[Rfam]
RNA sequence: ACGACCGGUACCGCACGACAUCAAAUGCUUUUCAAGAACGUCGGGAGAGAACCAACCAAACCCAACCCACCCCGCCGUCACCUGCGCCUGUCGGGCCCCUUCGUCAGCGCGGCGAGUCCGCGUCGCCCACAAGGGUGACAAACGCCAGCUCAGCUGGAUUUCCGUCCGGUUGCCGGGCAUAUGCUCGCCCCGCGACCGGCGAGAACGCCGGCGAGACAACUCCAGAACAUGCGUCGGCCCCCGGCCGGGACUGCAAUCCCGAUCGAGGGCCUGACCACCGAGAAGUAAGGCCCUCUUCCCG
Numbered sequence: 001a002c003g004a005c006c007g008g009u010a011c012c013g014c015a016c017g018a019c020a021u022c023a024a025a026u027g028c029u030u031u032u033c034a035a036g037a038a039c040g041u042c043g044g045g046a047g048a049g050a051a052c053c054a055a056c057c058a059a060a061c062c063c064a065a066c067c068c069a070c071c072c073c074g075c076c077g078u079c080a081c082c083u084g085c086g087c088c089u090g091u092c093g094g095g096c097c098c099c100u101u102c103g104u105c106a107g108c109g110c111g112g113c114g115a116g117u118c119c120g121c122g123u124c125g126c127c128c129a130c131a132a133g134g135g136u137g138a139c140a141a142a143c144g145c146c147a148g149c150u151c152a153g154c155u156g157g158a159u160u161u162c163c164g165u166c167c168g169g170u171u172g173c174c175g176g177g178c179a180u181a182u183g184c185u186c187g188c189c190c191c192g193c194g195a196c197c198g199g200c201g202a203g204a205a206c207g208c209c210g211g212c213g214a215g216a217c218a219a220c221u222c223c224a225g226a227a228c229a230u231g232c233g234u235c236g237g238c239c240c241c242c243g244g245c246c247g248g249g250a251c252u253g254c255a256a257u258c259c260c261g262a263u264c265g266a267g268g269g270c271c272u273g274a275c276c277a278c279c280g281a282g283a284a285g286u287a288a289g290g291c292c293c294u295c296u297u298c299c300c301g
Base pairs, nucleotide, nucleotide: 007279008278009277016109123138124137125136126135127134128133153212154211155210156209157208236271237270238269239268240267242265243264247260248259249258250257282298283297284296285295